[Rfam]
RNA sequence: AAGUGACGAAGCAGGAGCGAAAUAUUGUCCGUUCCGGUUUUUUAUAGGAAAACAAA
Numbered sequence: 001a002a003g004u005g006a007c008g009a010a011g012c013a014g015g016a017g018c019g020a021a022a023u024a025u026u027g028u029c030c031g032u033u034c035c036g037g038u039u040u041u042u043u044a045u046a047g048g049a050a051a052a053c054a055a056a
Stems, first nucleotide, its partner, number of pairs: 008043002010039003014035006
A member of the RNA family "Lacto-rpoB RNA" from Enterococcus faecalis, 56 nucleotides long.
By type it is a cis-regulatory element.
Rfam's curators put it in the seed alignment.